RNA sequence: CUCUUCCAUACAAUCACGGAUCUGUGCCCAGCGGUCCUCUGCUUUUCUCUGAAGAGUCAGGGUCGACUGCUGCGCAGCUCGAUAACAGCAUGGAGCCAUCAACUUGUUAUGGUGUCAAUCAUCCUAUCGACAGGUCCAAGAAGGACCCGGUCUUUAGCUGCCUCGUUCAUCGUCGCAAGACGGCUUGAGCGUUGCGGCUUCUGACUGGAGGCGCUAUAUUCCAACCCUCUUUUCCGAGACCGUCGGUCCGUGAGGUUGGGGAAAACCAUGGCAGCCUACAUUU
Numbered sequence: 001c002u003c004u005u006c007c008a009u010a011c012a013a014u015c016a017c018g019g020a021u022c023u024g025u026g027c028c029c030a031g032c033g034g035u036c037c038u039c040u041g042c043u044u045u046u047c048u049c050u051g052a053a054g055a056g057u058c059a060g061g062g063u064c065g066a067c068u069g070c071u072g073c074g075c076a077g078c079u080c081g082a083u084a085a086c087a088g089c090a091u092g093g094a095g096c097c098a099u100c101a102a103c104u105u106g107u108u109a110u111g112g113u114g115u116c117a118a119u120c121a122u123c124c125u126a127u128c129g130a131c132a133g134g135u136c137c138a139a140g141a142a143g144g145a146c147c148c149g150g151u152c153u154u155u156a157g158c159u160g161c162c163u164c165g166u167u168c169a170u171c172g173u174c175g176c177a178a179g180a181c182g183g184c185u186u187g188a189g190c191g192u193u194g195c196g197g198c199u200u201c202u203g204a205c206u207g208g209a210g211g212c213g214c215u216a217u218a219u220u221c222c223a224a225c226c227c228u229c230u231u232u233u234c235c236g237a238g239a240c241c242g243u244c245g246g247u248c249c250g251u252g253a254g255g256u257u258g259g260g261g262a263a264a265a266c267c268a269u270g271g272c273a274g275c276c277u278a279c280a281u282u283u
Base pairs, nucleotide, nucleotide: 018137019136020135021134022133023132024131025130026075027074029072030071031070033068034067035066036065037062038061039060040059041058042056043055044053045052083129085127087125091117092116093115095113096112097111150205151204152203157201160198161197165190166189167188168187171182172181173180174179210276211275212274213272214271215270216269217268226261227260228259229258234255235254238248239247240246241245